[Rfam]
RNA: UnaL2 LINE 3' element
RNA sequence: GAAAUCAUUUACUGUAAGUCGCUCUGGAUAAGAGCCUCUGCUAAAUGACAGAAA
Numbered sequence: 001g002a003a004a005u006c007a008u009u010u011a012c013u014g015u016a017a018g019u020c021g022c023u024c025u026g027g028a029u030a031a032g033a034g035c036c037u038c039u040g041c042u043a044a045a046u047g048a049c050a051g052a053a054a
Stems, first nucleotide, its partner, number of pairs: 013043001014041003021035005